Shown here is a 100-nucleotide sequence from Brassica oleracea, a member of the family "Small nucleolar RNA Z103".
RNA sequence: AUGGAGGUGAUGACAAUUUCCCCAAAUGAUCGAAUCUGAUUAUACUAAGCGAAUAUUAUUCUCUCUCAACAGAGGGAAUCAAGCCAAUAUUCUGAUCCUU
Dot-bracket structure: (.(((..........................................................................................))).)
The match comes from Rfam's covariance-model search (86 bits). By type it is a C/D-box small nucleolar RNA.